[Rfam]
Background: A member of the RNA family "SAM riboswitch aptamer (S box leader)" from Pseudochryseolinea flava, 124 nucleotides long. The base pairs follow the family's consensus structure, which is taken from published work.

RNA sequence: AGCUUAUCCAGAAAGACCGAGGGUUUGGGCCCAGUGACGUCUUAGCAUCCUACCUGGUUUCGAUUGCAUUGCGACUUGGUGUUGUGCUAAAUCCCAUCCCGACUUGUGCGGGAGAAGAUAAGCG
Numbered sequence: 001a002g003c004u005u006a007u008c009c010a011g012a013a014a015g016a017c018c019g020a021g022g023g024u025u026u027g028g029g030c031c032c033a034g035u036g037a038c039g040u041c042u043u044a045g046c047a048u049c050c051u052a053c054c055u056g057g058u059u060u061c062g063a064u065u066g067c068a069u070u071g072c073g074a075c076u077u078g079g080u081g082u083u084g085u086g087c088u089a090a091a092u093c094c095c096a097u098c099c100c101g102a103c104u105u106g107u108g109c110g111g112g113a114g115a116a117g118a119u120a121a122g123c124g
Stems, first nucleotide, its partner, number of pairs: 002123007013043005021032003026096004044088004049084001051081004092116001097113005
The source organism's lineage runs through Bacteria, Pseudomonadati, Bacteroidota, Fulvivirgaceae and Pseudochryseolinea.